RNA: SAM riboswitch aptamer (S box leader)
Organism: Alkaliphilus oremlandii
RNA sequence: CUCUUAUCGAGAGCGGUGGAGGGACUGGCCCGUUGAAACCCGGCAACCACGACAUUUGUCGAAGGUGCUAAUUCCAGCAACAUUUUUGUGUUGAGAGAUGAGAG
Numbered sequence: 001c002u003c004u005u006a007u008c009g010a011g012a013g014c015g016g017u018g019g020a021g022g023g024a025c026u027g028g029c030c031c032g033u034u035g036a037a038a039c040c041c042g043g044c045a046a047c048c049a050c051g052a053c054a055u056u057u058g059u060c061g062a063a064g065g066u067g068c069u070a071a072u073u074c075c076a077g078c079a080a081c082a083u084u085u086u087u088g089u090g091u092u093g094a095g096a097g098a099u100g101a102g103a104g
Stems, first nucleotide, its partner, number of pairs: 001104008013041001015040003021031003025077004042069004047065002050061004073096001078093006